[Rfam]
Nucleotides: 078
Base pairs, nucleotide, nucleotide: 002077003076005074006073008071011068012067013066016064017063020061021060022059024058025057026056028054029053030052
Number, partner (000 for none) and nucleotide at each position: 001000a002077g003076c004000u005074u006073u007000u008071c009000g010000a011068a012067u013066c014000c015000g016064u017063g018000c019000a020061a021060a022059g023000a024058u025057u026056u027000c028054g029053u030052c031000a032000g033000a034000c035000a036000c037000c038000a039000a040000c041000a042000c043000a044000c045000u046000a047000g048000g049000g050000c051000u052030g053029a054028u055000c056026a057025g058024a059022c060021u061020u062000c063017c064016a065000a066013g067012a068011u069000a070000a071008g072000u073006g074005a075000c076003g077002u078000g

This 78-nucleotide RNA from Schistosoma margrebowiei belongs to the Rfam family "mir-3492 microRNA precursor family". The family's consensus secondary structure was predicted with RNAalifold. Gene Ontology terms of the family: RISC complex and miRNA-mediated post-transcriptional gene silencing. NCBI's taxonomy places the organism under Eukaryota, Opisthokonta, Eumetazoa, Platyhelminthes, Schistosoma. It scores 59 bits against the family's covariance model.